Description
The record is a 78-nucleotide RNA from Agathobaculum faecis, which matches "Fluoride riboswitch aptamer (crcB RNA motif)" in Rfam. A search with the family's covariance model found it, with a score of 54 bits. Taxonomically the source falls in Agathobaculum (Bacteria, Bacillati, Eubacteriales, Butyricicoccaceae).
[Rfam]
RNA sequence: AUAACAAAAGGGAAUGAAGUUCUCCCUUGGCGCAUACUGCCUGAACCGCUUGAAAAAGCUGAUGACUUCUGCACGAAA
Numbered sequence: 001a002u003a004a005c006a007a008a009a010g011g012g013a014a015u016g017a018a019g020u021u022c023u024c025c026c027u028u029g030g031c032g033c034a035u036a037c038u039g040c041c042u043g044a045a046c047c048g049c050u051u052g053a054a055a056a057a058g059c060u061g062a063u064g065a066c067u068u069c070u071g072c073a074c075g076a077a078a
Stems, first nucleotide, its partner, number of pairs: 010026004016069006048059004